[Rfam]
RNA sequence: CCAAUGGCUCUUUUAAGAGCCACUCCUAUUAUCAGACACACACAA
Number, nucleotide and partner (000 for none) at each position: 001c000002c000003a000004a000005u000006g021007g020008c019009u018010c017011u016012u000013u000014u000015a000016a011017g010018a009019g008020c007021c006022a000023c000024u000025c000026c000027u000028a000029u000030u000031a000032u000033c000034a000035g000036a000037c000038a000039c000040a000041c000042a000043c000044a000045a000
Shown here is a 45-nucleotide sequence from Perca flavescens, a member of the family "Histone 3' UTR stem-loop". Rfam classes the family as a cis-regulatory element. The base pairs follow the family's consensus structure, which is taken from published work. A reference for the family is Dominski and Marzluff (1999), "Formation of the 3' end of histone mRNA", Gene.